The record is a 353-nucleotide sequence from Planococcus lenghuensis, which matches "transfer-messenger RNA" in Rfam.
Its family is annotated with RNA catabolic process in the Gene Ontology.
The source organism's lineage runs through Bacteria, Bacillota, Bacilli, Caryophanaceae and Planococcus.
The match comes from Rfam's covariance-model search (168 bits).

RNA sequence: GGGGACGUUACGGAUUCGACAGGAAUGGUCCAAGCUUGGACUGCGCGUCGGAGGGCUCGGCUCCGUAUCAACGGCACAAAUAGUAACUGGCAAAAACCAAAACCUCGCUUUCGCAGCGUAAGCUAGCGUAGCAGUCUGCCUGUCCAUCACCCAUGUGGAUCUGCAGACUUCAACUUAAGUGGGAUACGGUAGGCGGUGCGAUCCGAGCCGCCUGCAAGAGAUCAGUGGAUUAGUGCCUGUGACGCCUGCUUACUGGCAGAUCAGUGCACGAACCUUUAAUAAGUAAGCUAUGCGCGUAGACGUUCAAGUACAGGAGUUUCUGGACGCGGGUUCGACUCCCGCCGUCUCCAUAG
Numbered sequence: 001g002g003g004g005a006c007g008u009u010a011c012g013g014a015u016u017c018g019a020c021a022g023g024a025a026u027g028g029u030c031c032a033a034g035c036u037u038g039g040a041c042u043g044c045g046c047g048u049c050g051g052a053g054g055g056c057u058c059g060g061c062u063c064c065g066u067a068u069c070a071a072c073g074g075c076a077c078a079a080a081u082a083g084u085a086a087c088u089g090g091c092a093a094a095a096a097c098c099a100a101a102a103c104c105u106c107g108c109u110u111u112c113g114c115a116g117c118g119u120a121a122g123c124u125a126g127c128g129u130a131g132c133a134g135u136c137u138g139c140c141u142g143u144c145c146a147u148c149a150c151c152c153a154u155g156u157g158g159a160u161c162u163g164c165a166g167a168c169u170u171c172a173a174c175u176u177a178a179g180u181g182g183g184a185u186a187c188g189g190u191a192g193g194c195g196g197u198g199c200g201a202u203c204c205g206a207g208c209c210g211c212c213u214g215c216a217a218g219a220g221a222u223c224a225g226u227g228g229a230u231u232a233g234u235g236c237c238u239g240u241g242a243c244g245c246c247u248g249c250u251u252a253c254u255g256g257c258a259g260a261u262c263a264g265u266g267c268a269c270g271a272a273c274c275u276u277u278a279a280u281a282a283g284u285a286a287g288c289u290a291u292g293c294g295c296g297u298a299g300a301c302g303u304u305c306a307a308g309u310a311c312a313g314g315a316g317u318u319u320c321u322g323g324a325c326g327c328g329g330g331u332u333c334g335a336c337u338c339c340c341g342c343c344g345u346c347u348c349c350a351u352a353g
Stems, first nucleotide, its partner, number of pairs: 001349007020322007029313001034309008044296005049065005055075003109130001112128003116124001133169007144158004150183005189215009201231001204228001206226001233269004237264003244257003248288004326342005